[Rfam]
RNA sequence: CAGGCAUGCUGGAGCUCCGCAGCGGCGCCCGGGUCGAAAACCCCGACACCGUAUUUCCAUCGGAGCUUGU
Numbered sequence: 001c002a003g004g005c006a007u008g009c010u011g012g013a014g015c016u017c018c019g020c021a022g023c024g025g026c027g028c029c030c031g032g033g034u035c036g037a038a039a040a041c042c043c044c045g046a047c048a049c050c051g052u053a054u055u056u057c058c059a060u061c062g063g064a065g066c067u068u069g070u
Stems, first nucleotide, its partner, number of pairs: 012068008023051003030045004034040001